RNA: Transposase-2 RNA
RNA sequence: GAAGCGGGAAGCCGGCGGGGCGCCUGCCCGUAAGCCCGGCACCUCCGCCCGGCAACGGGCGGAUGUC
Numbered sequence: 001g002a003a004g005c006g007g008g009a010a011g012c013c014g015g016c017g018g019g020g021c022g023c024c025u026g027c028c029c030g031u032a033a034g035c036c037c038g039g040c041a042c043c044u045c046c047g048c049c050c051g052g053c054a055a056c057g058g059g060c061g062g063a064u065g066u067c
Base pairs, nucleotide, nucleotide: 011040012039013038014037015036018029019028020027021026044063045062046061047060048059049058050057051056
Dot-bracket structure: ..........(((((..((((....))))......)))))...((((((((....))))))))....